[Rfam]
RNA sequence: GGCAUGGGGAUUGCGAUCUCCCCACGAGGCGUCAGCCCAAGUAUCGCGUCCAGAAAACCGAAAACAACGGAAGGACGCGACAUG
Dot-bracket structure: ....((((((........)))))).....................((((((.....................))))))......
This 84-nucleotide RNA sequence from Phyllobacterium endophyticum belongs to the Rfam family "chrB-a RNA".